[Rfam]
RNA sequence: UCCGAUAAAGGCAAACUCAUCGAAAGGUGAGGACGCAAAGCCAUGGGUCUGUCGUUCCGAUGAACUAUUGAACUAUGAUCGCCAGGUUGCCGAAU
Dot-bracket structure: ..((......((...((((((....))))))..[))..((((.((((((...........................))).])))))))..))...
Numbered sequence: 001u002c003c004g005a006u007a008a009a010g011g012c013a014a015a016c017u018c019a020u021c022g023a024a025a026g027g028u029g030a031g032g033a034c035g036c037a038a039a040g041c042c043a044u045g046g047g048u049c050u051g052u053c054g055u056u057c058c059g060a061u062g063a064a065c066u067a068u069u070g071a072a073c074u075a076u077g078a079u080c081g082c083c084a085g086g087u088u089g090c091c092g093a094a095u
Stems, first nucleotide, its partner, number of pairs: 003092002011036002016031006034081001039088004044084003047079003
Rfam assigns this 95-nucleotide sequence from Aneurinibacillus danicus to the family "c-di-GMP-I-GGC riboswitch aptamer". A search with the family's covariance model found it, with a score of 72 bits. The source organism's lineage runs through Bacteria, Bacillati, Bacillota, Paenibacillaceae and Aneurinibacillus.